This 87-nucleotide RNA from Musa balbisiana belongs to the Rfam family "small nucleolar RNA snoR117". The literature on the family includes a 2009 paper in Nucleic Acids Res by Chen and Wu, "Mining small RNA sequencing data: a new approach to identify small nucleolar RNAs in Arabidopsis". Rfam 15.1 lists 419 matches to the family in 211 species. It scores 51 bits against the family's covariance model.
[Rfam]
RNA sequence: GGCCGAUGAUGCGAUAGUAUUGUCCGUACCAUCUGAGAUCCGGUAAUGCCGCCGCCUCUCUGAUGCUAUAUCUAUCUUCUGAGGCCG
Numbered sequence: 001g002g003c004c005g006a007u008g009a010u011g012c013g014a015u016a017g018u019a020u021u022g023u024c025c026g027u028a029c030c031a032u033c034u035g036a037g038a039u040c041c042g043g044u045a046a047u048g049c050c051g052c053c054g055c056c057u058c059u060c061u062g063a064u065g066c067u068a069u070a071u072c073u074a075u076c077u078u079c080u081g082a083g084g085c086c087g
Stems, first nucleotide, its partner, number of pairs: 001086004

Rfam classes the family as a C/D-box small nucleolar RNA. The organism belongs to Musa, within Eukaryota.